[Rfam]
A member of the RNA family "MIR2617 microRNA precursor family" from Medicago truncatula, 84 nucleotides long. The source organism's lineage runs through Eukaryota, fabids, Papilionoideae, Hologalegina and Medicago.
RNA sequence: UUGCAAUGUAGCAUGCCCGUUUGAUGUUAAACUCUGAUGUUAUAUUAUUAUUAAUUGUAUUAUGGGAAACGGGGUGUUACAGAA
Number, nucleotide and partner (000 for none) at each position: 001u000002u000003g000004c000005a000006a000007u081008g080009u079010a078011g077012c076013a075014u074015g000016c073017c072018c071019g070020u069021u068022u000023g000024a000025u000026g000027u000028u000029a000030a000031a000032c000033u000034c000035u000036g000037a000038u000039g000040u000041u000042a000043u000044a000045u000046u000047a000048u000049u000050a000051u000052u000053a000054a000055u000056u000057g000058u000059a000060u000061u000062a000063u000064g000065g000066g000067a000068a021069a020070c019071g018072g017073g016074g014075u013076g012077u011078u010079a009080c008081a007082g000083a000084a000